The record is a 420-nucleotide RNA from Coemansia aciculifera, which matches "Nuclear RNase P" in Rfam. The organism belongs to Coemansia, within Eukaryota. By type it is a ribozyme.
RNA sequence: GACGUCGGGACCUGCGCUAGGCGAUACUUACAUUUCAAUGUACGCUUGGGUAAAGUCCGGGAAAAGUCGUGCAAGCCUCUAGCUGAGGGUCCUGCUAAUAGCGGGGCGGGAUGUGACCAGAAAAUACCCGCCUGCGUGCUUGGACAAGAGGAAGGAAUUUUUUUAUUCUUUCUUCUUGUGGGGCUGUUGAAGCUUUGCUUUCUCUCGGGAGGGCAUAAAGCUGAAGCCCUUUUUUUUUCUUCCCCCUCGCCUGUUUAGGCAGGAGGGAGGGAGGAGAGACCAGGUGCGCUUGCGGGUUGAGACUCCACUCCCUGGCGGUAAGACUUGGAUGCAGUGCAUUGCGCAGGGCACCGGCGCACUUGUUCAUUUUUUUUGAGCAAGUGUCGCCGGUGACACUCAGUCCGGAUUAUCCCGCGCGUC
Dot-bracket structure: ((((..(((..[[....[(((((...................))))).........(((((....((((......((((.....)))).((((((.....)))))).((((.(((.............(.(..................................................................................................................................................................).).........)))))))))))........................]....]].((((((((............................))))))))........))))).....)))...))))